The record is an 87-nucleotide sequence from Beta vulgaris, which matches "Small nucleolar RNA SNORD25" in Rfam. The source organism's lineage runs through Eukaryota, Streptophyta, Tracheophyta, Betoideae and Beta vulgaris. The family's RNA type in Rfam is C/D-box small nucleolar RNA. The family is grouped with related families in Rfam's "SNORD25 clan". A reference for the family is Qu et al. (2001), "Identification of 10 novel snoRNA gene clusters from Arabidopsis thaliana", Nucleic Acids Res. It scores 71 bits against the family's covariance model. Rfam 15.1 lists 985 matches to the family in 241 species.

[Rfam]
RNA sequence: AGUAGCAGUGAUGAGUCAAUACAGACCUGUAAUGAUUUGCGGAUAUGAUCGCAAUUCAUUAAUGAACAUCUAAGGGACUGAGCUCUU
Numbered sequence: 001a002g003u004a005g006c007a008g009u010g011a012u013g014a015g016u017c018a019a020u021a022c023a024g025a026c027c028u029g030u031a032a033u034g035a036u037u038u039g040c041g042g043a044u045a046u047g048a049u050c051g052c053a054a055u056u057c058a059u060u061a062a063u064g065a066a067c068a069u070c071u072a073a074g075g076g077a078c079u080g081a082g083c084u085c086u087u
Stems, first nucleotide, its partner, number of pairs: 002086001004084003